Annotation
This 116-nucleotide RNA sequence from Bacillus sp. DNRA2 belongs to the Rfam family "ylbH leader".

RNA sequence: AAAGAAAAAACCCUGCAAAAAUGCAGGGUCCUUCUAUAUCCUUUUUAGGAUAGAAGGCAAAGGGAGAGGAGAAACCGGAGGAAGAACUUAUGGGGAAACGUAAGUCUUCUCCGCGG
Numbered sequence: 001a002a003a004g005a006a007a008a009a010a011c012c013c014u015g016c017a018a019a020a021a022u023g024c025a026g027g028g029u030c031c032u033u034c035u036a037u038a039u040c041c042u043u044u045u046u047a048g049g050a051u052a053g054a055a056g057g058c059a060a061a062g063g064g065a066g067a068g069g070a071g072a073a074a075c076c077g078g079a080g081g082a083a084g085a086a087c088u089u090a091u092g093g094g095g096a097a098a099c100g101u102a103a104g105u106c107u108u109c110u111c112c113g114c115g116g
Stems, first nucleotide, its partner, number of pairs: 011028007029064005038051004076113004081109004086105005

The match comes from Rfam's covariance-model search (112 bits).